RNA sequence: GACCUUUGAUGCAAUCCGCUUGGUCAAGGAAGUUGAUUGCCUAGGUCGCGGCUCGGUUUGUGCAUAUUGCCAAUACUUGAAUAGACUUCGGUUGAAAGAAAAAUGCACAAU
Numbered sequence: 001g002a003c004c005u006u007u008g009a010u011g012c013a014a015u016c017c018g019c020u021u022g023g024u025c026a027a028g029g030a031a032g033u034u035g036a037u038u039g040c041c042u043a044g045g046u047c048g049c050g051g052c053u054c055g056g057u058u059u060g061u062g063c064a065u066a067u068u069g070c071c072a073a074u075a076c077u078u079g080a081a082u083a084g085a086c087u088u089c090g091g092u093u094g095a096a097a098g099a100a101a102a103a104u105g106c107a108c109a110a111u
Base pairs, nucleotide, nucleotide: 001047002046003045004044011040012039013038014037015036016035018033019032020031021030024080025079026078027077062106063105064104084093085092086091
Shown here is a 111-nucleotide sequence, a member of the family "drum RNA". It is one of the family's seed sequences. From the family's description: Firmicutes, Bacteroidetes (1 example), Proteobacteria (2 examples), Spirochaetes (2 examples). Pairs were carried over by alignment from the consensus structure, which is taken from published work. It is annotated as a small RNA.